[Rfam]
RNA sequence: ACGACCCUUUUCCCCACUACGGAUCGUUCGGCACGUACCUGCCGAUGGAGGACACUAU
Numbered sequence: 001a002c003g004a005c006c007c008u009u010u011u012c013c014c015c016a017c018u019a020c021g022g023a024u025c026g027u028u029c030g031g032c033a034c035g036u037a038c039c040u041g042c043c044g045a046u047g048g049a050g051g052a053c054a055c056u057a058u
Stems, first nucleotide, its partner, number of pairs: 010052003014048003028045006
The family of this 58-nucleotide sequence from Corynebacterium imitans is "msiK RNA". By type it is a cis-regulatory element. A search with the family's covariance model found it, with a score of 53 bits. Pairs were carried over by alignment from the consensus structure, which is taken from published work.